[Rfam]
RNA sequence: GGUGUAAAAAGUAAUUAGGCUGUAAAAUAACUCAUUUUAAUUAAAGGAAUAAAAAUUUAAAAAAUUAAAAUAGAAAAUUAUUUUACUUGAGUGUUUUAAAAAGAAAUUGAAAUUUUUAAUGUAAGGAUGAAAUCUUUUAAUAUUUUAAAGAAUUCUAAAUGGCUUAGGCUUUUUUCUAUAUUAUACACUGACGCUGAGUAACUAAAGUGUGGGUAACGAAAAGGAUUAGAGACCCUAUUAGUCCAUACCAUAAACGAGGAGUGUUAAAGGUUAUUUAUAAUCUUUUAAUUUACGUUUUAAACACUCUACCUGGAGAGUACUAGGGCAACCUAUAAACCCAAAAGAAU
Numbered sequence: 001g002g003u004g005u006a007a008a009a010a011g012u013a014a015u016u017a018g019g020c021u022g023u024a025a026a027a028u029a030a031c032u033c034a035u036u037u038u039a040a041u042u043a044a045a046g047g048a049a050u051a052a053a054a055a056u057u058u059a060a061a062a063a064a065u066u067a068a069a070a071u072a073g074a075a076a077a078u079u080a081u082u083u084u085a086c087u088u089g090a091g092u093g094u095u096u097u098a099a100a101a102a103g104a105a106a107u108u109g110a111a112a113u114u115u116u117u118a119a120u121g122u123a124a125g126g127a128u129g130a131a132a133u134c135u136u137u138u139a140a141u142a143u144u145u146u147a148a149a150g151a152a153u154u155c156u157a158a159a160u161g162g163c164u165u166a167g168g169c170u171u172u173u174u175u176c177u178a179u180a181u182u183a184u185a186c187a188c189u190g191a192c193g194c195u196g197a198g199u200a201a202c203u204a205a206a207g208u209g210u211g212g213g214u215a216a217c218g219a220a221a222a223g224g225a226u227u228a229g230a231g232a233c234c235c236u237a238u239u240a241g242u243c244c245a246u247a248c249c250a251u252a253a254a255c256g257a258g259g260a261g262u263g264u265u266a267a268a269g270g271u272u273a274u275u276u277a278u279a280a281u282c283u284u285u286u287a288a289u290u291u292a293c294g295u296u297u298u299a300a301a302c303a304c305u306c307u308a309c310c311u312g313g314a315g316a317g318u319a320c321u322a323g324g325g326c327a328a329c330c331u332a333u334a335a336a337c338c339c340a341a342a343a344g345a346a347u
Stems, first nucleotide, its partner, number of pairs: 001310003009307001011202002014199001016196001018195003022086007030079001032075001033073001034071007050059002090189003093184002097180002102177005109154002113149003118144003124135003159170001162169002207248006216242002222236003259306006267284007288295002312339002321332004
The record is a 347-nucleotide part of an RNA, which matches "Bacterial small subunit ribosomal RNA" in Rfam. It scores 529 bits against the family's covariance model. The family's consensus secondary structure is taken from published work. Rfam links the family to the GO terms ribosome and structural constituent of ribosome.